[Rfam]
A member of the RNA family "Selenocysteine transfer RNA" from Piscinibacter sp. HJYY11, 92 nucleotides long. NCBI's taxonomy places the organism under Bacteria, Pseudomonadati, Betaproteobacteria, Burkholderiales, Piscinibacter. The base pairs follow the family's consensus structure, which is taken from published work.
Nucleotides: 092
Base pairs, nucleotide, nucleotide: 001092002091003090004089005088006087007086011026012025013024014023015022016021027045028044029043030042031041032040047065048064049063050062051061069083070082071081072080
Number, partner (000 for none) and nucleotide at each position: 001092g002091g003090a004089g005088g006087g007086g008000a009000a010000a011026c012025g013024u014023c015022c016021c017000c018000g019000g020000u021016g022015g023014g024013a025012c026011g027045g028044c029043c030042g031041g032040g033000c034000u035000u036000c037000a038000a039000a040032c041031c042030c043029g044028g045027u046000g047065g048064g049063u050062g051061g052000c053000g054000c055000c056000a057000c058000g059000c060000g061051u062050c063049g064048c065047c066000g067000g068000g069083u070082g071081g072080g073000u074000u075000c076000g077000a078000c079000u080072c081071c082070c083069a084000c085000a086007c087006c088005c089004c090003u091002c092001c